Shown here is a 35-nucleotide RNA, a member of the family "DUF805b RNA".
[Rfam]
RNA sequence: AGAGAGGAUGCCGAAAAUCUCAUAAAGAGUAGGCG
Numbered sequence: 001a002g003a004g005a006g007g008a009u010g011c012c013g014a015a016a017a018u019c020u021c022a023u024a025a026a027g028a029g030u031a032g033g034c035g
Base pairs, nucleotide, nucleotide: 002021003020004019005018010034011033012032
Rfam's curators put it in the seed alignment. Pairs were carried over by alignment from the consensus structure, which is taken from published work. Rfam classes the family as a cis-regulatory element.